The record is a 119-nucleotide RNA sequence from Azoarcus sp. KH32C, which matches "Betaproteobacteria-1 RNA" in Rfam. The organism belongs to Azoarcus, within Bacteria.
RNA sequence: CGCCUGCAUGGACGGGGUUUCAACGGCAGCAUGCAGGGGAUAAGUCGGACUGCGGGGAAGUCUCGAGAACCGACACCGGGUGGCGAAGCUAGCGCCCGGGAGGCGAACGGCUGGCGGCG
Numbered sequence: 001c002g003c004c005u006g007c008a009u010g011g012a013c014g015g016g017g018u019u020u021c022a023a024c025g026g027c028a029g030c031a032u033g034c035a036g037g038g039g040a041u042a043a044g045u046c047g048g049a050c051u052g053c054g055g056g057g058a059a060g061u062c063u064c065g066a067g068a069a070c071c072g073a074c075a076c077c078g079g080g081u082g083g084c085g086a087a088g089c090u091a092g093c094g095c096c097c098g099g100g101a102g103g104c105g106a107a108c109g110g111c112u113g114g115c116g117g118c119g
Stems, first nucleotide, its partner, number of pairs: 001039001003037008026053004044074005060104004076099006088115006